RNA sequence: CCGAGAUAGGGGUACAAAUCCUGCCAAAGGCGUUUCCCUGGACCUAAGCGAUGAUGCGCAAGCUAGCGACGACUCUCGGCGUGUAGAGGGGGCGAGUUCCGAUUCGAAGGGAAGCCCCUCUCAC
Dot-bracket structure: (((((((.(((((.((.....((((...))))......)).))))..((......((....))..))..).).))))))..((.((.((((((......((...)).......)))))))))).
Numbered sequence: 001c002c003g004a005g006a007u008a009g010g011g012g013u014a015c016a017a018a019u020c021c022u023g024c025c026a027a028a029g030g031c032g033u034u035u036c037c038c039u040g041g042a043c044c045u046a047a048g049c050g051a052u053g054a055u056g057c058g059c060a061a062g063c064u065a066g067c068g069a070c071g072a073c074u075c076u077c078g079g080c081g082u083g084u085a086g087a088g089g090g091g092g093c094g095a096g097u098u099c100c101g102a103u104u105c106g107a108a109g110g111g112a113a114g115c116c117c118c119u120c121u122c123a124c
Stems, first nucleotide, its partner, number of pairs: 001079006007072001009070001010045004015040002022032004048067002056063002082123002085121002088119006100106002